[Rfam]
RNA: mir-190 microRNA precursor family
RNA sequence: GACUCUGUCUGAUAUGUUUGAUAUUAGGUUGUUUUAUUGGAAAACCAACUAAAUAUCAAACAUUCUUACAGCGCC
Number, nucleotide and partner (000 for none) at each position: 001g000002a000003c000004u000005c071006u070007g069008u068009c000010u000011g064012a000013u000014a063015u062016g061017u060018u059019u058020g057021a056022u055023a054024u053025u052026a000027g050028g049029u048030u047031g046032u000033u000034u000035u000036a000037u000038u000039g000040g000041a000042a000043a000044a000045c000046c031047a030048a029049c028050u027051a000052a025053a024054u023055a022056u021057c020058a019059a018060a017061c016062a015063u014064u011065c000066u000067u000068a008069c007070a006071g005072c000073g000074c000075c000